Rfam assigns this 311-nucleotide RNA sequence from Nocardia vermiculata to the family "Mycobacterium smegmatis small RNA 1". The literature on the family includes a 2014 paper in Nucleic Acids Res by Hnilicova et al., "Ms1, a novel sRNA interacting with the RNA polymerase core in mycobacteria". Mycobacterium smegmatis small RNA 1 is highly expressed during stationary phase of growth. Ms1 RNA directly interacts with RNA polymerase (RNAP), but in a different way than 6S, which is present in other bacteria. Ms1 does not require the presence of the main sigma factor for RNAP interaction. There is evidence that Ms1 RNA may function similar to 6S RNA in M. smegmatis which does not have 6S RNA.
RNA sequence: ACGGGAGGACGGAAGGCCAAGAUCGAAGCGGAAGAGAAGGUUCGAUCUCCCGACCGUACUUCCCCAGCACGGACGCCAGGUACCCACGCGGAGCACGCCGCUACAAGGGCACCAGCGUUGUGGGCCUGCGAAAUUCGGAUUCACAUCGGCAAUGGCCCCGCACAGGUUGCGGGGAUGAACCGGUGGAGUGCGGAUUGAUCGCCGAGGCCGCAGAACACAACCCGAACCAGCACGCAUGGUAACCGGGUAGUCCGUGCUAGCGGGCGGUGAGGCCGAGUCUGUCGGUUCGGCUACGCCGCCCGCUUCGAUGU
Numbered sequence: 001a002c003g004g005g006a007g008g009a010c011g012g013a014a015g016g017c018c019a020a021g022a023u024c025g026a027a028g029c030g031g032a033a034g035a036g037a038a039g040g041u042u043c044g045a046u047c048u049c050c051c052g053a054c055c056g057u058a059c060u061u062c063c064c065c066a067g068c069a070c071g072g073a074c075g076c077c078a079g080g081u082a083c084c085c086a087c088g089c090g091g092a093g094c095a096c097g098c099c100g101c102u103a104c105a106a107g108g109g110c111a112c113c114a115g116c117g118u119u120g121u122g123g124g125c126c127u128g129c130g131a132a133a134u135u136c137g138g139a140u141u142c143a144c145a146u147c148g149g150c151a152a153u154g155g156c157c158c159c160g161c162a163c164a165g166g167u168u169g170c171g172g173g174g175a176u177g178a179a180c181c182g183g184u185g186g187a188g189u190g191c192g193g194a195u196u197g198a199u200c201g202c203c204g205a206g207g208c209c210g211c212a213g214a215a216c217a218c219a220a221c222c223c224g225a226a227c228c229a230g231c232a233c234g235c236a237u238g239g240u241a242a243c244c245g246g247g248u249a250g251u252c253c254g255u256g257c258u259a260g261c262g263g264g265c266g267g268u269g270a271g272g273c274c275g276a277g278u279c280u281g282u283c284g285g286u287u288c289g290g291c292u293a294c295g296c297c298g299c300c301c302g303c304u305u306c307g308a309u310g311u
Base pairs, nucleotide, nucleotide: 003064004063006061007059009057010056011055015051016050020048021047024044025043026042027041029039066258067257068256069255070254071253072252073251076246077245079244080243081242084239085238086237088235089234090233093231094230097110098109099108117221118220119219120218121217122216123209124208125207126206127205128202129201130200131199133195134194135193136192137191142188144186146183147182148181149180150177151176156174157173158172159171160170161169162168260303261302262301263300264299265298266297267296268295269294272291273290274289275288276287